[Rfam]
RNA: mir-2765 microRNA precursor family
RNA sequence: GACGUACCUGGGCCUGGUAACUCCACCACCGUUGGCGGUGCCAGUGCGCCAACGGGGGCAGAGUUCCCGCUCCUAGAUGCGCG
Numbered sequence: 001g002a003c004g005u006a007c008c009u010g011g012g013c014c015u016g017g018u019a020a021c022u023c024c025a026c027c028a029c030c031g032u033u034g035g036c037g038g039u040g041c042c043a044g045u046g047c048g049c050c051a052a053c054g055g056g057g058g059c060a061g062a063g064u065u066c067c068c069g070c071u072c073c074u075a076g077a078u079g080c081g082c083g
Stems, first nucleotide, its partner, number of pairs: 003081004008076005016068002019065005026058002029055009